RNA sequence: GUCAGGGAUUGGGUCUUUGCGGGCGAGGCGAGUCCGCAUUGGCAUCAACUGGCCUUCAAAGUCCCAGUUCAUGGC
Numbered sequence: 001g002u003c004a005g006g007g008a009u010u011g012g013g014u015c016u017u018u019g020c021g022g023g024c025g026a027g028g029c030g031a032g033u034c035c036g037c038a039u040u041g042g043c044a045u046c047a048a049c050u051g052g053c054c055u056u057c058a059a060a061g062u063c064c065c066a067g068u069u070c071a072u073g074g075c
Stems, first nucleotide, its partner, number of pairs: 003073002006070003010066004015061005021055004026050002030046001